[Rfam]
RNA: SAM riboswitch aptamer (S box leader)
RNA sequence: CUCUUAUCCUGAGAUGGUGGAGGGAACAGGCCCUGUGAAACCCAGCAACCUACUACGAAUCAAUGGUUUUCCGUAGCAAGGUGCUAACCUGGUGCAAGGCAAUUGCCUUGGACGAUAAGAG
Numbered sequence: 001c002u003c004u005u006a007u008c009c010u011g012a013g014a015u016g017g018u019g020g021a022g023g024g025a026a027c028a029g030g031c032c033c034u035g036u037g038a039a040a041c042c043c044a045g046c047a048a049c050c051u052a053c054u055a056c057g058a059a060u061c062a063a064u065g066g067u068u069u070u071c072c073g074u075a076g077c078a079a080g081g082u083g084c085u086a087a088c089c090u091g092g093u094g095c096a097a098g099g100c101a102a103u104u105g106c107c108u109u110g111g112a113c114g115a116u117a118a119g120a121g
Stems, first nucleotide, its partner, number of pairs: 001121008013043001016042003022033003027094002030090001044085004049081002051078001053076005095110006